[Rfam]
RNA sequence: CUAAUGCGAUGGGAAAGCGCUUCUUCUUCUUCCCCAUCGCGAAUGGAACUGGGGAGGGGAAAUCGAUUCGAAAGUGGCCGAGAAAUCGUUUCAUCCGCCCUUGUUCUACUGGGUUGGCGGUAUGAUUGUUGCUCGUCUACAC
Numbered sequence: 001c002u003a004a005u006g007c008g009a010u011g012g013g014a015a016a017g018c019g020c021u022u023c024u025u026c027u028u029c030u031u032c033c034c035c036a037u038c039g040c041g042a043a044u045g046g047a048a049c050u051g052g053g054g055a056g057g058g059g060a061a062a063u064c065g066a067u068u069c070g071a072a073a074g075u076g077g078c079c080g081a082g083a084a085a086u087c088g089u090u091u092c093a094u095c096c097g098c099c100c101u102u103g104u105u106c107u108a109c110u111g112g113g114u115u116g117g118c119g120g121u122a123u124g125a126u127u128g129u130u131g132c133u134c135g136u137c138u139a140c141a142c
Stems, first nucleotide, its partner, number of pairs: 006040006013032003017028001076138002079135004085126004095120005105113002
The family of this 142-nucleotide RNA from Corymbia citriodora is "Small nucleolar RNA snoR111". The literature on the family includes a 2002 paper in Curr Biol by Marker et al., "Experimental RNomics: identification of 140 candidates for small non-messenger RNAs in the plant Arabidopsis thaliana". The family's consensus secondary structure was predicted with WAR. By type it is an H/ACA-box small nucleolar RNA.